RNA sequence: UUUUAGCCCUGAUAGCAGUGGAAAUCCUUUUGUUUUUUCCUUUAAAAAACAAAAGAUUGCAACGGAUAGCAGGAUUAGCU
Numbered sequence: 001u002u003u004u005a006g007c008c009c010u011g012a013u014a015g016c017a018g019u020g021g022a023a024a025u026c027c028u029u030u031u032g033u034u035u036u037u038u039c040c041u042u043u044a045a046a047a048a049a050c051a052a053a054a055g056a057u058u059g060c061a062a063c064g065g066a067u068a069g070c071a072g073g074a075u076u077a078g079c080u
Stems, first nucleotide, its partner, number of pairs: 009072003013068002018063002023058004029053005036046003
Background
A member of the RNA family "Flavo-1 RNA" from Flavobacterium psychrophilum, 80 nucleotides long. Rfam classes the family as a small RNA. Rfam 15.1 lists 7,497 matches to the family in 411 species.